[Rfam]
RNA sequence: UCGAGGCUCCAUCUACAAAUGGAUAAUUCUUUAGCGUUAGUUUAGACCUAGUUUAGCAAAAAAUUAGCAAUAUAAGCCUUCUUUUGAAUUCAAAAGAAGGCUUAUAUUGCUAAUUU
Numbered sequence: 001u002c003g004a005g006g007c008u009c010c011a012u013c014u015a016c017a018a019a020u021g022g023a024u025a026a027u028u029c030u031u032u033a034g035c036g037u038u039a040g041u042u043u044a045g046a047c048c049u050a051g052u053u054u055a056g057c058a059a060a061a062a063a064u065u066a067g068c069a070a071u072a073u074a075a076g077c078c079u080u081c082u083u084u085u086g087a088a089u090u091c092a093a094a095a096g097a098a099g100g101c102u103u104a105u106a107u108u109g110c111u112a113a114u115u116u
Base pairs, nucleotide, nucleotide: 008023009022010021011020012019061116062115063114064113065112066111067110068109069108070107071106072105073104075102076101077100079098080097081096082095083094
Rfam assigns this 116-nucleotide RNA from Microthlaspi erraticum to the family "Plastid-psbA-1 3UTR RNA".
Rfam classes the family as a cis-regulatory element.
It scores 92 bits against the family's covariance model.
Rfam's curators write: Plastid psbA-1 is a non-coding RNA (ncRNA) present in plastids. It was identified in inverted repeat sequences in the 3 prime untranslate region (3UTR) of photosystem II quinone-binding protein (psbA).